Rfam assigns this 81-nucleotide RNA from Jaculus jaculus to the family "small Cajal body-specific RNA 18".
RNA sequence: CUGCCAAUGAUGCUGUGAACACUGUAUAAUCUGAGUUCUGGGAACCAGGUGAUGGAGAUUGCUGAGCACAGAUUAAUGCCG
Numbered sequence: 001c002u003g004c005c006a007a008u009g010a011u012g013c014u015g016u017g018a019a020c021a022c023u024g025u026a027u028a029a030u031c032u033g034a035g036u037u038c039u040g041g042g043a044a045c046c047a048g049g050u051g052a053u054g055g056a057g058a059u060u061g062c063u064g065a066g067c068a069c070a071g072a073u074u075a076a077u078g079c080c081g
Stems, first nucleotide, its partner, number of pairs: 003079002038048004
scaRNAs are a specific class of small nuclear RNAs which localise to the Cajal bodies and guide the modification of RNA polymerase II transcribed spliceosomal RNAs U1, U2, U4, U5 and U12. This C/D box domain U91 (also known as U4-8) was identified by Darzacq and is predicted to guide the 2'O-ribose methylation of U4 snRNA C8. A search with the family's covariance model found it, with a score of 70 bits. Its family is annotated with Cajal body, nucleolus and RNA processing in the Gene Ontology.